[Rfam]
RNA sequence: AGUUGAUAAAGGCAAAACCAUUGAAAAAUGGCGACGCAAAGCUAGAGGGACUAACGGGGUUAAAACCUAUGUCAGCCAGCUGCCAAC
Numbered sequence: 001a002g003u004u005g006a007u008a009a010a011g012g013c014a015a016a017a018c019c020a021u022u023g024a025a026a027a028a029u030g031g032c033g034a035c036g037c038a039a040a041g042c043u044a045g046a047g048g049g050a051c052u053a054a055c056g057g058g059g060u061u062a063a064a065a066c067c068u069a070u071g072u073c074a075g076c077c078a079g080c081u082g083c084c085a086a087c
Stems, first nucleotide, its partner, number of pairs: 012037002018031005040081004047077002049073003056067002
A member of the RNA family "c-di-GMP-I riboswitch aptamer" from Bacillus sp. V3-13, 87 nucleotides long. The organism belongs to Bacillus, within Bacteria. The match comes from Rfam's covariance-model search (75 bits). The base pairs follow the family's consensus structure, which is taken from published work.